[Rfam]
RNA sequence: UACAGGUUGUUGGGGGACGGUUAGCCACACCCUUUUGAAAGGGGGUGGUAUGAUGACAAUAUUUGAGGCGAUGUAUCUUAUGAUAGCAUUUGCAACACUUAUUGUUUUAAUCAUAAAAAAGAAAUAACCGCCCCUCUCUAAAGUUCGCGGUUAUUUCACAUACCCAAGGACUGGGCUAACCGUUUCCGGUUAGGCAACUUGUAGGGGCUGGCGUGUAUCGAGCACGUCAG
Numbered sequence: 001u002a003c004a005g006g007u008u009g010u011u012g013g014g015g016g017a018c019g020g021u022u023a024g025c026c027a028c029a030c031c032c033u034u035u036u037g038a039a040a041g042g043g044g045g046u047g048g049u050a051u052g053a054u055g056a057c058a059a060u061a062u063u064u065g066a067g068g069c070g071a072u073g074u075a076u077c078u079u080a081u082g083a084u085a086g087c088a089u090u091u092g093c094a095a096c097a098c099u100u101a102u103u104g105u106u107u108u109a110a111u112c113a114u115a116a117a118a119a120a121g122a123a124a125u126a127a128c129c130g131c132c133c134c135u136c137u138c139u140a141a142a143g144u145u146c147g148c149g150g151u152u153a154u155u156u157c158a159c160a161u162a163c164c165c166a167a168g169g170a171c172u173g174g175g176c177u178a179a180c181c182g183u184u185u186c187c188g189g190u191u192a193g194g195c196a197a198c199u200u201g202u203a204g205g206g207g208c209u210g211g212c213g214u215g216u217a218u219c220g221a222g223c224a225c226g227u228c229a230g
Stems, first nucleotide, its partner, number of pairs: 001203003005199003009195001010179002012136005019129004026047003030044005055106007069082002092098001180194002208230009
Shown here is a 230-nucleotide RNA from Pelosinus sp. UFO1, a member of the family "BsrG".
bsrE, bsrG and bsrH pair through intermolecular interactions with antisense sRNAs. They form type I toxin/antitoxin system that includes an mRNA encoding for a short, toxic peptide (bsrE, bsrG and bsrH) and an antitoxin that is comprised of an antisense RNA. bsrG encodes a 39-amino-acid toxin, and the 180 nucleotide antisense sRNA called SR4 acts as the antitoxin (they overlap by 123 nucleotides).
The family has 6 seed sequences and 614 matches in Rfam 15.1.
NCBI's taxonomy places the organism under Bacteria, Bacillota, Negativicutes, Selenomonadales, Pelosinus.
On this family, see Saito et al., Gene 2008: "Novel small RNA-encoding genes in the intergenic regions of Bacillus subtilis".
It is annotated as a small RNA.